Annotation:
The family of this 97-nucleotide RNA sequence from Liquorilactobacillus cacaonum is "THF (Tetrahydrofolate) riboswitch aptamer". Pairs were carried over by alignment from the consensus structure, which is taken from published work. NCBI's taxonomy places the organism under Bacteria, Bacillota, Lactobacillaceae, Liquorilactobacillus, Liquorilactobacillus cacaonum. Rfam 15.1 lists 747 matches to the family in 747 species. On this family, see Ames et al., Chem Biol 2010: "A eubacterial riboswitch class that senses the coenzyme tetrahydrofolate".
[Rfam]
RNA sequence: UUCGGGGUAGAGAAUAAAGCGUUAAGUGCUAAAAGGACGGAAUGUGUCUUUUAGACGAAAGGUUUUUACCUGCGGUUUUAUUUUCGCAUUCGCCGCA
Number, nucleotide and partner (000 for none) at each position: 001u097002u000003c095004g094005g093006g000007g000008u000009a000010g085011a084012g083013a082014a081015u080016a079017a078018a077019g076020c074021g073022u072023u000024a000025a000026g056027u055028g000029c054030u053031a052032a051033a050034a049035g048036g047037a000038c000039g000040g091041a090042a089043u088044g087045u000046g000047u036048c035049u034050u033051u032052u031053a030054g029055a027056c026057g000058a000059a000060a071061g070062g069063u068064u000065u000066u000067u000068a063069c062070c061071u060072g022073c021074g020075g000076u019077u018078u017079u016080a015081u014082u013083u012084u011085c010086g000087c044088a043089u042090u041091c040092g000093c005094c004095g003096c000097a001